RNA sequence: GGUCAUGAGCAUCAGCGACAAGCCCCGGCUCGCUGAUCGGCAACCCUCCUCCGCGGUGGGGUGCUCCGGGUGAUGACCUGGUCGCGGCGGACUUCGUGUUCGCCCGCGGCAAGCGCGGGUC
Numbered sequence: 001g002g003u004c005a006u007g008a009g010c011a012u013c014a015g016c017g018a019c020a021a022g023c024c025c026c027g028g029c030u031c032g033c034u035g036a037u038c039g040g041c042a043a044c045c046c047u048c049c050u051c052c053g054c055g056g057u058g059g060g061g062u063g064c065u066c067c068g069g070g071u072g073a074u075g076a077c078c079u080g081g082u083c084g085c086g087g088c089g090g091a092c093u094u095c096g097u098g099u100u101c102g103c104c105c106g107c108g109g110c111a112a113g114c115g116c117g118g119g120u121c
Base pairs, nucleotide, nucleotide: 001078002077003076004075009038011037012036013035014034015033016032021030022029039065040064041063044061045060046059048056049055081110082109083108084107085106086105087104
The family of this 121-nucleotide RNA sequence from Gordonia malaquae is "SAM (S-adenosyl methionine) riboswitch aptamer".
It scores 105 bits against the family's covariance model.
NCBI's taxonomy places the organism under Bacteria, Actinomycetes, Mycobacteriales, Gordonia, Gordonia malaquae.
Rfam 15.1 lists 2,360 matches to the family in 1,305 species.